[Rfam]
RNA: Small nucleolar RNA SNORA72
Organism: Pipistrellus kuhlii
RNA sequence: CUACGAAUACCCUCGCUAUUCUGAUUUUGAAAUAAUCAGGGCAGGCUAAACAUUCACUAUAUUAAGACCAUGCACAUGUCCCCAGACCUAGAUCUUUCCCUGGGUCUGGUUUUCUAAAUGCUGGUGAUAAGC
Numbered sequence: 001c002u003a004c005g006a007a008u009a010c011c012c013u014c015g016c017u018a019u020u021c022u023g024a025u026u027u028u029g030a031a032a033u034a035a036u037c038a039g040g041g042c043a044g045g046c047u048a049a050a051c052a053u054u055c056a057c058u059a060u061a062u063u064a065a066g067a068c069c070a071u072g073c074a075c076a077u078g079u080c081c082c083c084a085g086a087c088c089u090a091g092a093u094c095u096u097u098c099c100c101u102g103g104g105u106c107u108g109g110u111u112u113u114c115u116a117a118a119u120g121c122u123g124g125u126g127a128u129a130a131g132c
Base pairs, nucleotide, nucleotide: 005055016044017043019041020040021039022038023037024036025035026034067125068124069123070122072121073120082109083108084107085106086105087104088103089102090101091100